The family of this 83-nucleotide RNA from Chrysochloris asiatica is "mir-130 microRNA precursor family". Pairs were carried over by alignment from the consensus structure, which was predicted with PFOLD. The organism belongs to Chrysochloris, within Eukaryota. It scores 106 bits against the family's covariance model.
RNA sequence: UGCUGGCCAGAGCUCUUUUCACAUUGUGCUACUGUCUUUACCUGUCACUAGCAGUGCAAUGUUAAAAGGGCAUUGGCCAGGUA
Numbered sequence: 001u002g003c004u005g006g007c008c009a010g011a012g013c014u015c016u017u018u019u020c021a022c023a024u025u026g027u028g029c030u031a032c033u034g035u036c037u038u039u040a041c042c043u044g045u046c047a048c049u050a051g052c053a054g055u056g057c058a059a060u061g062u063u064a065a066a067a068g069g070g071c072a073u074u075g076g077c078c079a080g081g082u083a
Stems, first nucleotide, its partner, number of pairs: 001083003005078006012071008022061009